[Rfam]
About this RNA:
The family of this 73-nucleotide RNA from Myotis davidii is "mir-9193 microRNA precursor family". The organism belongs to Myotis, within Eukaryota. Gene Ontology terms of the family: RISC complex and miRNA-mediated post-transcriptional gene silencing. The family's consensus secondary structure was predicted with RNAalifold.
RNA sequence: CAGGGGAUGGGGGAUCCCUCAGCCCAGAUUGCAAGAGGGCGCAGGCUAGGCCGAGGAACCCCACCAGUACACA
Numbered sequence: 001c002a003g004g005g006g007a008u009g010g011g012g013g014a015u016c017c018c019u020c021a022g023c024c025c026a027g028a029u030u031g032c033a034a035g036a037g038g039g040c041g042c043a044g045g046c047u048a049g050g051c052c053g054a055g056g057a058a059c060c061c062c063a064c065c066a067g068u069a070c071a072c073a
Stems, first nucleotide, its partner, number of pairs: 004070001006068001008066003011062003015058001017056004022051003026047002029044004